[Rfam]
RNA sequence: GAGUGAGAUGAUGGUAUUCCAUCUUUCGGGACUGACCUGGAAUGGAGAUAACACUUCUUACUGAUCACUC
Numbered sequence: 001g002a003g004u005g006a007g008a009u010g011a012u013g014g015u016a017u018u019c020c021a022u023c024u025u026u027c028g029g030g031a032c033u034g035a036c037c038u039g040g041a042a043u044g045g046a047g048a049u050a051a052c053a054c055u056u057c058u059u060a061c062u063g064a065u066c067a068c069u070c
Base pairs, nucleotide, nucleotide: 001070002069003068004067005066006065
Rfam assigns this 70-nucleotide sequence from Atractosteus spatula to the family "Small nucleolar RNA SNORD2". The source organism's lineage runs through Eukaryota, Opisthokonta, Chordata, Teleostomi and Atractosteus. Rfam links the family to the GO terms nucleolus and RNA processing. The family's consensus secondary structure was predicted with WAR. The match comes from Rfam's covariance-model search (80 bits). The family has 17 seed sequences and 1,116 matches in Rfam 15.1.